[Rfam]
Nucleotides: 137
Base pairs, nucleotide, nucleotide: 005035006034007033008032013030014029015028016027017026018025054089055088056087060083061082062081063080064079065078066077067076099132100131101130102129103128104127105126106125107124108123109122110121111120112119
Number, partner (000 for none) and nucleotide at each position: 001000g002000g003000u004000a005035c006034c007033u008032u009000u010000a011000a012000u013030u014029c015028a016027g017026u018025c019000c020000u021000g022000u023000g024000a025018g026017g027016c028015u029014g030013a031000c032008a033007a034006g035005g036000a037000c038000a039000g040000c041000g042000g043000a044000u045000a046000u047000g048000g049000u050000a051000a052000c053000a054089g055088a056087a057000c058000g059000c060083c061082g062081u063080g064079u065078a066077u067076g068000g069000u070000u071000g072000u073000g074000u075000u076067c077066a078065u079064g080063c081062a082061u083060g084000u085000a086000u087056u088055u089054c090000u091000g092000u093000g094000a095000g096000c097000c098000a099132g100131c101130a102129g103128g104127u105126u106125u107124c108123u109122u110121g111120u112119c113000a114000u115000u116000u117000g118000c119112g120111a121110c122109g123108g124107g125106a126105a127104g128103c129102c130101u131100g132099u133000u134000u135000u136000u137000u